[Rfam]
RNA sequence: GGCAGAGGGAGCCCGGCCCCCGUGCGCACGGUGGCGCAUGAGGAAAGUCCCCCCACCGUCCGGGCAGGCGACCGGGCGCAAGCCCGGGGCGGGAGACCGCCGGCACUGGAACAGCAACGAGACCCCCCGGUCAGAGUGAUGAUGCGCGAGGGGCCGCAAGGCCCCCGGCGCGAGCGGGCCCGGCCCGCGAGCGCGUGAAGCGAGCCGCAAGGUAACCCAGUUAACCCGUUGAACGUCGACGACCGGGAACGGAUGGAACGGCGAACCCUCGCCGGUGCAAGCCCGCCGCGCCGGUAGCCCGGACACGGCGGCGGGCGCUCAGCCGAAUGCCGGGCCGAACAGAAGGGGGCUUACUCCCCUCAGCC
Numbered sequence: 001g002g003c004a005g006a007g008g009g010a011g012c013c014c015g016g017c018c019c020c021c022g023u024g025c026g027c028a029c030g031g032u033g034g035c036g037c038a039u040g041a042g043g044a045a046a047g048u049c050c051c052c053c054c055a056c057c058g059u060c061c062g063g064g065c066a067g068g069c070g071a072c073c074g075g076g077c078g079c080a081a082g083c084c085c086g087g088g089g090c091g092g093g094a095g096a097c098c099g100c101c102g103g104c105a106c107u108g109g110a111a112c113a114g115c116a117a118c119g120a121g122a123c124c125c126c127c128c129g130g131u132c133a134g135a136g137u138g139a140u141g142a143u144g145c146g147c148g149a150g151g152g153g154c155c156g157c158a159a160g161g162c163c164c165c166c167g168g169c170g171c172g173a174g175c176g177g178g179c180c181c182g183g184c185c186c187g188c189g190a191g192c193g194c195g196u197g198a199a200g201c202g203a204g205c206c207g208c209a210a211g212g213u214a215a216c217c218c219a220g221u222u223a224a225c226c227c228g229u230u231g232a233a234c235g236u237c238g239a240c241g242a243c244c245g246g247g248a249a250c251g252g253a254u255g256g257a258a259c260g261g262c263g264a265a266c267c268c269u270c271g272c273c274g275g276u277g278c279a280a281g282c283c284c285g286c287c288g289c290g291c292c293g294g295u296a297g298c299c300c301g302g303a304c305a306c307g308g309c310g311g312c313g314g315g316c317g318c319u320c321a322g323c324c325g326a327a328u329g330c331c332g333g334g335c336c337g338a339a340c341a342g343a344a345g346g347g348g349g350c351u352u353a354c355u356c357c358c359c360u361c362a363g364c365c
Stems, first nucleotide, its partner, number of pairs: 001365003005361005010355002012334006021040007045352003049349005054277004061302001063300002067273005072087005088101005102268002107264001109262001123252002126247007281316009
Dot-bracket structure: (((.(((((((((((((...(((((((......)))))))....[[[.[[[[[((((...[.[[..((((((((((......)))))(((((....)))))((...(.(.............((.(((((((............................................................................................................)))))))...)).........).)..)))))))))))...(((((((((.........]].].....)))))))))............))))))..........]]]]]]]].)).))))).)))
A member of the RNA family "Archaeal RNase P" from Haloglomus irregulare, 365 nucleotides long. Ribonuclease P (RNase P) is a ubiquitous endoribonuclease, found in archaea, bacteria and eukarya as well as chloroplasts and mitochondria. The literature on the family includes a 1998 paper in Annu Rev Biochem by Frank and Pace, "Ribonuclease P: unity and diversity in a tRNA processing ribozyme".